[Rfam]
RNA sequence: ACUGGAGGACUAAUCAGAAUGAGUCUGAAGAGUGAGACUCAGAUAUCUAACAGUAGCCUCCUAAAAAAAAAAAAAAUGGGUGGAGAGAGCAGUCCUGCUUGGAGAAGAGCAAAGGUCUGACUGUGCCAUCCAACACUG
Number, nucleotide and partner (000 for none) at each position: 001a000002c000003u063004g061005g060006a059007g058008g057009a000010c000011u000012a000013a000014u000015c000016a000017g048018a000019a046020u000021g040022a039023g038024u037025c036026u035027g000028a000029a000030g000031a000032g000033u000034g000035a026036g025037a024038c023039u022040c021041a000042g000043a000044u000045a000046u019047c000048u017049a000050a000051c000052a000053g000054u000055a000056g000057c008058c007059u006060c005061c004062u000063a003064a000065a000066a000067a000068a000069a000070a000071a000072a000073a000074a000075a000076a000077u000078g131079g130080g129081u128082g000083g000084a000085g000086a000087g000088a122089g121090c119091a118092g117093u000094c115095c114096u113097g000098c000099u000100u111101g110102g000103a000104g000105a000106a000107g000108a000109g000110c101111a100112a000113a096114g095115g094116u000117c092118u091119g090120a000121c089122u088123g000124u000125g000126c000127c000128a081129u080130c079131c078132a000133a000134c000135a000136c000137u000138g000

Rfam assigns this 138-nucleotide RNA from Galbula dea to the family "Small Cajal body specific RNA 4". It scores 74 bits against the family's covariance model. Clan: SCARNA4 clan. Rfam classes the family as a small Cajal body RNA. scaRNAs are a specific class of small nuclear RNAs which localise to the Cajal bodies and guide the modification of RNA polymerase II transcribed spliceosomal RNAs U1, U2, U4, U5 and U12. For this family Rfam cites "Cajal body-specific small nuclear RNAs: a novel class of 2'-O-methylation and pseudouridylation guide RNAs" (Darzacq et al., EMBO J, 2002).